[Rfam]
RNA: mir-196 microRNA precursor family
Nucleotides: 077
Base pairs, nucleotide, nucleotide: 003075004074005073006072007071008070009069011067012066013065014064015063017061018060019059022056023055024054025053026052027051028050029049030048031047
Number, partner (000 for none) and nucleotide at each position: 001000a002000u003075c004074g005073u006072g007071g008070u009069u010000u011067a012066g013065g014064u015063a016000g017061u018060u019059u020000c021000a022056u023055g024054u025053u026052g027051u028050u029049g030048g031047g032000u033000u034000g035000g036000c037000u038000c039000u040000u041000c042000u043000g044000u045000u046000g047031c048030u049029c050028g051027a052026c053025a054024a055023c056022a057000g058000g059019a060018a061017a062000g063015u064014g065013c066012c067011u068000u069009a070008a071007u072006u073005a074004c075003g076000u077000c